The record is a 93-nucleotide RNA from Nicotiana attenuata, which matches "MIR6152 microRNA precursor family" in Rfam. NCBI's taxonomy places the organism under Eukaryota, Streptophyta, Magnoliopsida, Nicotianoideae, Nicotiana. The family's consensus secondary structure was predicted with RNAalifold. The family has 2 seed sequences and 5,807 matches in Rfam 15.1. It scores 68 bits against the family's covariance model.

[Rfam]
RNA sequence: UGUAUUCGACAUUAUUCGACUGUAUUCGCGGCGUGAAACAGGGAUUACACUGUUUUUAAACGGAAAGUGUAUCAGUUAACAUAAUAGACUACU
Numbered sequence: 001u002g003u004a005u006u007c008g009a010c011a012u013u014a015u016u017c018g019a020c021u022g023u024a025u026u027c028g029c030g031g032c033g034u035g036a037a038a039c040a041g042g043g044a045u046u047a048c049a050c051u052g053u054u055u056u057u058a059a060a061c062g063g064a065a066a067g068u069g070u071a072u073c074a075g076u077u078a079a080c081a082u083a084a085u086a087g088a089c090u091a092c093u
Stems, first nucleotide, its partner, number of pairs: 002092003011085003015079002018077002021074002024072002027069003032062003035056007